[Rfam]
RNA sequence: ACACGGGAAAGGAGGUGGUCCGAAGAAUGAGUUCUUCCAGGACGCGUGAGGUGGCUGCCCGCUAGCAGCCCCGCAGUUCCGACGGGCUGCGCGCGAAACCAACGCAGCCACCCGACCCGCAGGUGAAACCGGGAUCGUCCCCCGGCCCGGUCCGAGGACCGCACCUGCGGGUCGCUGCGU
Numbered sequence: 001a002c003a004c005g006g007g008a009a010a011g012g013a014g015g016u017g018g019u020c021c022g023a024a025g026a027a028u029g030a031g032u033u034c035u036u037c038c039a040g041g042a043c044g045c046g047u048g049a050g051g052u053g054g055c056u057g058c059c060c061g062c063u064a065g066c067a068g069c070c071c072c073g074c075a076g077u078u079c080c081g082a083c084g085g086g087c088u089g090c091g092c093g094c095g096a097a098a099c100c101a102a103c104g105c106a107g108c109c110a111c112c113c114g115a116c117c118c119g120c121a122g123g124u125g126a127a128a129c130c131g132g133g134a135u136c137g138u139c140c141c142c143c144g145g146c147c148c149g150g151u152c153c154g155a156g157g158a159c160c161g162c163a164c165c166u167g168c169g170g171g172u173c174g175c176u177g178c179g180u
Stems, first nucleotide, its partner, number of pairs: 014059006060095003065090002068087004113174013130145001132143002
Dot-bracket structure: .............((((((..................................))))))(((..((.((((............)))).))..))).................(((((((((((((....(.((........)).)................)))))))))))))......
Description
The family of this 180-nucleotide RNA sequence from Nocardioides kongjuensis is "Actinobacteria sRNA Ms_IGR-5". Lineage of the source: Bacteria > Actinomycetota > Propionibacteriales > Nocardioidaceae > Nocardioides. The family's RNA type in Rfam is small RNA.